[Rfam]
RNA: Selenocysteine transfer RNA
Organism: Phycicoccus endophyticus
RNA sequence: GGAGGCGUUCCUCGUCUGGUGACGGGCGCGGUCUUCAACACCGACGUGACCGGGACACCCGGUCAGGCGGGUUCGAUUCCCGUCCGCCUCC
Numbered sequence: 001g002g003a004g005g006c007g008u009u010c011c012u013c014g015u016c017u018g019g020u021g022a023c024g025g026g027c028g029c030g031g032u033c034u035u036c037a038a039c040a041c042c043g044a045c046g047u048g049a050c051c052g053g054g055a056c057a058c059c060c061g062g063u064c065a066g067g068c069g070g071g072u073u074c075g076a077u078u079c080c081c082g083u084c085c086g087c088c089u090c091c
Stems, first nucleotide, its partner, number of pairs: 001091007011026006029043004047065005068082004
Dot-bracket structure: (((((((...((((((....))))))..((((.......))))...(((((.........)))))..((((.......))))..)))))))